[Rfam]
Shown here is a 157-nucleotide RNA sequence from Burkholderia lata, a member of the family "FMN riboswitch aptamer (RFN element)". The source organism's lineage runs through Bacteria, Pseudomonadati, Betaproteobacteria, Burkholderiales and Burkholderia cepacia complex. Gene Ontology term of the family: FMN binding.

RNA sequence: GAACGUUCUCGGGGCGGGGUGAAAUUCCCCACCGGCGGUAAUCGCGCGAUUGCGCGUAGCCCGCGAGCGCUUGCCGGCACGCAUGUGCCCGGCAAGGUCAGCAGACCCGGUUGGAUUCCGGGGCCGACGGUCAAAGUCCGGAUGAGAGAGAGCGGGG
Numbered sequence: 001g002a003a004c005g006u007u008c009u010c011g012g013g014g015c016g017g018g019g020u021g022a023a024a025u026u027c028c029c030c031a032c033c034g035g036c037g038g039u040a041a042u043c044g045c046g047c048g049a050u051u052g053c054g055c056g057u058a059g060c061c062c063g064c065g066a067g068c069g070c071u072u073g074c075c076g077g078c079a080c081g082c083a084u085g086u087g088c089c090c091g092g093c094a095a096g097g098u099c100a101g102c103a104g105a106c107c108c109g110g111u112u113g114g115a116u117u118c119c120g121g122g123g124c125c126g127a128c129g130g131u132c133a134a135a136g137u138c139c140g141g142a143u144g145a146g147a148g149a150g151a152g153c154g155g156g157g
Base pairs, nucleotide, nucleotide: 004154005153006152007151008150009149010148017029018028019027031137032136033126034125035064036063037062038061059124060123067102068101106122107121108120109119110118128140129139130138
Dot-bracket structure: ...(((((((......(((.......))).[[((((((....................[[))))..((................................))...(((((.......)))))]])).(((.....]]))).......)))))))...